[Rfam]
Shown here is a 169-nucleotide sequence from Ceyx cyanopectus, a member of the family "Small Cajal body specific RNA 16". The family's consensus secondary structure was predicted with RNAfold. scaRNAs are a specific class of small nuclear RNAs which localise to the Cajal bodies and guide the modification of RNA polymerase II transcribed spliceosomal RNAs U1, U2, U4, U5 and U12. ACA47 belongs to the H/ACA box class of guide RNAs as it has the predicted hairpin-hinge-hairpin-tail structure, the conserved H/ACA-box motifs and is found associated with GAR1. ACA47 is predicted to guide the pseudouridylation of residue U5 of the U1 spliceosomal snRNA. Lineage of the source: Eukaryota > Eumetazoa > Chordata > Alcedinidae > Ceyx. Rfam classes the family as a small Cajal body RNA. Rfam links the family to the GO terms RNA processing and nucleolus.
RNA sequence: CAGGGCUGGGGAAGGGCUGCUGGGCAGCAGGGCCAGCGAGCCCAGCCUCAUCCCAGCCAGCCUCACCCGUGCCCCAGAUCAACCCCCCGGCACGGAGCCAUCCCGUGCAGUAACAGGUGUGAGCAUUCAUGCAGCCUUUUGAUGGUCAUGUAUGAUACUGCAUACAACA
Numbered sequence: 001c002a003g004g005g006c007u008g009g010g011g012a013a014g015g016g017c018u019g020c021u022g023g024g025c026a027g028c029a030g031g032g033c034c035a036g037c038g039a040g041c042c043c044a045g046c047c048u049c050a051u052c053c054c055a056g057c058c059a060g061c062c063u064c065a066c067c068c069g070u071g072c073c074c075c076a077g078a079u080c081a082a083c084c085c086c087c088c089g090g091c092a093c094g095g096a097g098c099c100a101u102c103c104c105g106u107g108c109a110g111u112a113a114c115a116g117g118u119g120u121g122a123g124c125a126u127u128c129a130u131g132c133a134g135c136c137u138u139u140u141g142a143u144g145g146u147c148a149u150g151u152a153u154g155a156u157a158c159u160g161c162a163u164a165c166a167a168c169a
Base pairs, nucleotide, nucleotide: 003074004073005072006071008068009067010066015062016061017060018059019057020056021055022054024053027046028045030043032041033040087095088094105163106162107161108160109159110158111157112156114154115153120148121147122146124144125143126142127141131138